[Rfam]
Small nucleolar RNA Z122: a 101-nucleotide RNA from Coffea arabica.
A search with the family's covariance model found it, with a score of 44 bits.
It is annotated as a C/D-box small nucleolar RNA.
The source organism's lineage runs through Eukaryota, Streptophyta, Pentapetalae, Ixoroideae and Coffea.
The family's consensus secondary structure was predicted with PFOLD.

RNA sequence: UUUGGGAAAUGAUGAGACUGUUAAACCAUGUUUGUUCAGAGGUUCUAUUAGAUUAUCUGGGCUGUGCUGAACAAUCUUUUGCACAUCAGUCUGAUUCUAAA
Numbered sequence: 001u002u003u004g005g006g007a008a009a010u011g012a013u014g015a016g017a018c019u020g021u022u023a024a025a026c027c028a029u030g031u032u033u034g035u036u037c038a039g040a041g042g043u044u045c046u047a048u049u050a051g052a053u054u055a056u057c058u059g060g061g062c063u064g065u066g067c068u069g070a071a072c073a074a075u076c077u078u079u080u081g082c083a084c085a086u087c088a089g090u091c092u093g094a095u096u097c098u099a100a101a
Stems, first nucleotide, its partner, number of pairs: 001101007